[Rfam]
RNA sequence: UUGAAGCUCCGUCUACAAAUGGCGUUCGUAGUUUAGUGUAUACGAGUUAUUGAAAGUAAGGGGGUGAUACCUGUUUCUUGACAGAGCAAGAAAUUGGUCAUUGCUUCUUU
Numbered sequence: 001u002u003g004a005a006g007c008u009c010c011g012u013c014u015a016c017a018a019a020u021g022g023c024g025u026u027c028g029u030a031g032u033u034u035a036g037u038g039u040a041u042a043c044g045a046g047u048u049a050u051u052g053a054a055a056g057u058a059a060g061g062g063g064g065u066g067a068u069a070c071c072u073g074u075u076u077c078u079u080g081a082c083a084g085a086g087c088a089a090g091a092a093a094u095u096g097g098u099c100a101u102u103g104c105u106u107c108u109u110u
Base pairs, nucleotide, nucleotide: 009022010021011020012019058110059109060108061107062106063105064104065103066102067101068100071096073094075092076091077090078089079088